[Rfam]
RNA sequence: AGUGGGACCAAGUUGAGUGGGCCAUUUCCUGAUCUGUAGUCAAGAUCAGGGGUCGUCAAAUUUGCCACCUGAAUGAGGGCCUCCU
Numbered sequence: 001a002g003u004g005g006g007a008c009c010a011a012g013u014u015g016a017g018u019g020g021g022c023c024a025u026u027u028c029c030u031g032a033u034c035u036g037u038a039g040u041c042a043a044g045a046u047c048a049g050g051g052g053u054c055g056u057c058a059a060a061u062u063u064g065c066c067a068c069c070u071g072a073a074u075g076a077g078g079g080c081c082u083c084c085u
Base pairs, nucleotide, nucleotide: 001085002084004082006080008078009077012074013073014072016070017069018067019066021065022064024062026060027059032053033052034051035050037048039046

The family of this 85-nucleotide sequence from Prolemur simus is "mir-571 microRNA precursor family". The family's consensus secondary structure was predicted with RNAalifold. Rfam links the family to the GO terms miRNA-mediated post-transcriptional gene silencing and RISC complex. The family has 4 seed sequences and 202 matches in Rfam 15.1.